[Rfam]
The record is a 71-nucleotide RNA from Brugia malayi, which matches "mir-5366 microRNA precursor family" in Rfam.
RNA sequence: AAGCCCGUAAAUGCACUAUGUUGCUAAUUAUGUGCGUUUGGAAAUUAGCAGCACGGCGCAUUUGCGCGCAA
Numbered sequence: 001a002a003g004c005c006c007g008u009a010a011a012u013g014c015a016c017u018a019u020g021u022u023g024c025u026a027a028u029u030a031u032g033u034g035c036g037u038u039u040g041g042a043a044a045u046u047a048g049c050a051g052c053a054c055g056g057c058g059c060a061u062u063u064g065c066g067c068g069c070a071a
Base pairs, nucleotide, nucleotide: 003069004068006066007065008064009063010062011061012060013059014058016056017055019053020052021051022050023049024048025047026046027045028044029043
Rfam 15.1 lists 18 matches to the family in 18 species. The sequence is in the family's curated seed alignment. The organism belongs to Brugia, within Eukaryota.